A member of the RNA family "Small nucleolar RNA snR60/Z15/Z230/Z193/J17" from Hymenochirus boettgeri, 76 nucleotides long.
Rfam 15.1 lists 3,592 matches to the family in 1,855 species.
The family is grouped with related families in Rfam's "SNORD77 clan".
Lineage of the source: Eukaryota > Craniata > Teleostomi > Batrachia > Hymenochirus.
On this family, see Lowe and Eddy, Science 1999: "A computational screen for methylation guide snoRNAs in yeast".
The family's RNA type in Rfam is C/D-box small nucleolar RNA.

RNA sequence: CUGACACAAUGAUGAGUACAUAGUUCAGCAGAUUAACACUGAUGAAUAUUUCUUUCGCUCCUAUCUGAUGUGUCUU
Numbered sequence: 001c002u003g004a005c006a007c008a009a010u011g012a013u014g015a016g017u018a019c020a021u022a023g024u025u026c027a028g029c030a031g032a033u034u035a036a037c038a039c040u041g042a043u044g045a046a047u048a049u050u051u052c053u054u055u056c057g058c059u060c061c062u063a064u065c066u067g068a069u070g071u072g073u074c075u076u
Base pairs, nucleotide, nucleotide: 004073005072006071007070008069